[Rfam]
RNA sequence: GUCACCGCGAGGUGGGGUGGGAAGGAAGCCGGAGGCAAAUCCCUGCACCGAGGGACACGAACCACAUAUAAGGCAUGUUUGUCGGGGUAAACCAGCAUGUGAUGGUGAAGCCCGUUCCACCGAAACGGCAAGUGUGUAGAUGUGGCGGGCGCAGGAGGAAAGUAAAUGUU
Dot-bracket structure: .(((((....)))))............(.((...((...(.((((..(((...........((((((.....(((.(((((((.((((..((((........))))...)))).............))))))).)))..)))))))))...)))).)....))...)).)
Description
Rfam assigns this 170-nucleotide RNA sequence from Glutamicibacter sp. BW77 to the family "Group II catalytic intron D1-D4-3". The pairing is the family consensus, mapped onto this sequence. It scores 129 bits against the family's covariance model. The organism belongs to Glutamicibacter, within Bacteria.